[Rfam]
RNA sequence: GGAUGUGAGUGCUGUCUGGCUGUAACUUCUGUCACCAAAUUGAUUGCCAGGGUUGAUUCAGCUGAUCUGGCUGGCUAGACGGGUGUCCCCUUCCUCCCUUACUGCUCCGUGUGCAUCCCUUCCGAAGCUGCACACUUGGUUGAAGAGGACAACCUUCCCUGAUAGAGAAGGGUCAAGGAUAUAUGGUUGCUGCGCUCUGCUUCUAGAACCUUCAAACAUGCUCAAGGUUAACAUUCAAAACGUCACAAUUAUGAGUUAUAGAAGAAACCUUAAAGAAAGAAGUGUUAUAAGAUUGUUAAGGAAGAUGAACUUUAUUU
Number, nucleotide and partner (000 for none) at each position: 001g108002g107003a106004u000005g102006u101007g100008a099009g098010u000011g096012c000013u000014g092015u000016c000017u000018g090019g089020c000021u000022g000023u000024a000025a086026c085027u000028u083029c082030u081031g080032u079033c078034a000035c074036c073037a000038a000039a068040u000041u000042g067043a066044u065045u064046g062047c061048c000049a000050g000051g000052g000053u000054u000055g000056a000057u000058u000059c000060a000061g047062c046063u000064g045065a044066u043067c042068u039069g000070g000071c000072u000073g036074g035075c000076u000077a000078g033079a032080c031081g030082g029083g028084u000085g026086u025087c000088c000089c019090c018091u000092u014093c000094c000095u000096c011097c000098c009099u008100u007101a006102c005103u000104g000105c000106u003107c002108c001109g000110u000111g000112u000113g000114c000115a000116u171117c170118c000119c167120u166121u165122c139123c138124g137125a136126a000127g135128c000129u000130g000131c000132a000133c000134a000135c127136u125137u124138g123139g122140u162141u161142g160143a000144a000145g000146a000147g158148g157149a156150c000151a000152a000153c000154c000155u000156u149157c148158c147159c000160u142161g141162a140163u000164a000165g121166a120167g119168a000169a000170g117171g116172g000173u000174c000175a000176a000177g000178g000179a000180u000181a000182u000183a000184u000185g000186g000187u000188u000189g268190c000191u266192g000193c000194g000195c261196u260197c000198u258199g257200c000201u255202u254203c253204u000205a000206g000207a000208a000209c000210c000211u248212u247213c000214a000215a000216a000217c000218a000219u000220g000221c000222u000223c000224a000225a000226g000227g000228u000229u000230a000231a000232c000233a000234u000235u000236c000237a000238a000239a000240a000241c000242g000243u000244c000245a000246c000247a212248a211249u000250u000251a000252u000253g203254a202255g201256u000257u199258a198259u000260a196261g195262a000263a000264g000265a000266a191267a000268c189269c000270u000271u000272a000273a000274a000275g000276a000277a000278a000279g000280a000281a000282g000283u000284g000285u000286u000287a000288u000289a000290a000291g000292a000293u000294u000295g000296u000297u000298a000299a317300g000301g313302a312303a311304g310305a000306u000307g000308a000309a000310c304311u303312u302313u301314a000315u000316u000317u299